[Rfam]
RNA: L31-Actinobacteria ribosomal protein leader
RNA sequence: UCGGUUCCGGUUCACGUCGCGCAAGCCCGCGCUGGACGACCCGGGACU
Numbered sequence: 001u002c003g004g005u006u007c008c009g010g011u012u013c014a015c016g017u018c019g020c021g022c023a024a025g026c027c028c029g030c031g032c033u034g035g036a037c038g039a040c041c042c043g044g045g046a047c048u
Base pairs, nucleotide, nucleotide: 003048004047005046007044008043009042010041015038016037017036018035019032020031021030